Shown here is a 105-nucleotide RNA sequence from Pyrus ussuriensis x Pyrus communis, a member of the family "MIR397 microRNA precursor family".
[Rfam]
RNA sequence: UGAAGAAACAUCAUUGAGUGCAGCGUUGAUGAAAGUCCGUAUUCCUUACGAAUCUUCAUUAGGCAUCGGAAACUUUCGUCAGCGCUGCACCCAAUUAUGUUUCUA
Numbered sequence: 001u002g003a004a005g006a007a008a009c010a011u012c013a014u015u016g017a018g019u020g021c022a023g024c025g026u027u028g029a030u031g032a033a034a035g036u037c038c039g040u041a042u043u044c045c046u047u048a049c050g051a052a053u054c055u056u057c058a059u060u061a062g063g064c065a066u067c068g069g070a071a072a073c074u075u076u077c078g079u080c081a082g083c084g085c086u087g088c089a090c091c092c093a094a095u096u097a098u099g100u101u102u103c104u105a
Stems, first nucleotide, its partner, number of pairs: 006102006013095004018090011030078003
Taxonomically the source falls in Pyrus (Eukaryota, Streptophytina, Tracheophyta, Mesangiospermae).